[Rfam]
RNA: glmS glucosamine-6-phosphate activated ribozyme aptamer
RNA sequence: GGAAGUAGGGAAGCGCCUGGACUCGCCGCAGGCGAGUUGACGAGGUGGAGGCUGAUCGAACCAUUCGGCGGAUGGCCUCCCGGCUGGCACGGUCGUGACGGUGAGAGCAAAACUGGCGGGUGACCGCCAGGACAAAGGCUCACCGAUGUGCCCCC
Numbered sequence: 001g002g003a004a005g006u007a008g009g010g011a012a013g014c015g016c017c018u019g020g021a022c023u024c025g026c027c028g029c030a031g032g033c034g035a036g037u038u039g040a041c042g043a044g045g046u047g048g049a050g051g052c053u054g055a056u057c058g059a060a061c062c063a064u065u066c067g068g069c070g071g072a073u074g075g076c077c078u079c080c081c082g083g084c085u086g087g088c089a090c091g092g093u094c095g096u097g098a099c100g101g102u103g104a105g106a107g108c109a110a111a112a113c114u115g116g117c118g119g120g121u122g123a124c125c126g127c128c129a130g131g132a133c134a135a136a137g138g139c140u141c142a143c144c145g146a147u148g149u150g151c152c153c154c155c
Stems, first nucleotide, its partner, number of pairs: 020038008047080005056068004081095006099145007113130007